[Rfam]
RNA sequence: CUAUUCGGUUACUCACUCAACCUGGGUGUGAUGUGUUUUUUUAUCCAUCACAACCUCCUUGAGUGAGCGAUCGGUUUA
Number, nucleotide and partner (000 for none) at each position: 001c000002u000003a000004u000005u000006c000007g000008g000009u069010u000011a000012c067013u066014c065015a064016c063017u062018c061019a060020a059021c000022c000023u000024g055025g054026g000027u052028g051029u050030g049031a048032u047033g046034u000035g000036u000037u000038u000039u000040u000041u000042u000043a000044u000045c000046c033047a032048u031049c030050a029051c028052a027053a000054c025055c024056u000057c000058c000059u020060u019061g018062a017063g016064u015065g014066a013067g012068c000069g009070a000071u000072c000073g000074g000075u000076u000077u000078a000